[Rfam]
RNA sequence: GAAUGUUCUCAGGGCGGGGUGCAAUUCCCCACCGGCGGUCACAGCCCGCGAGCGCCCUUCGGAAACGAAGGGGUCAGCAGAUCCGGUGAAACUCCGGGGCCGACAGUAUAGUCUGGAUGAAAGAGAACCGUG
Numbered sequence: 001g002a003a004u005g006u007u008c009u010c011a012g013g014g015c016g017g018g019g020u021g022c023a024a025u026u027c028c029c030c031a032c033c034g035g036c037g038g039u040c041a042c043a044g045c046c047c048g049c050g051a052g053c054g055c056c057c058u059u060c061g062g063a064a065a066c067g068a069a070g071g072g073g074u075c076a077g078c079a080g081a082u083c084c085g086g087u088g089a090a091a092c093u094c095c096g097g098g099g100c101c102g103a104c105a106g107u108a109u110a111g112u113c114u115g116g117a118u119g120a121a122a123g124a125g126a127a128c129c130g131u132g
Base pairs, nucleotide, nucleotide: 005128006127007126008125009124010123017029018028019027031112032111033102034101035049036048037047038046044100045099052078053077082098083097084096085095086094104115105114106113
RNA: FMN riboswitch aptamer (RFN element)
Organism: Paracoccus subflavus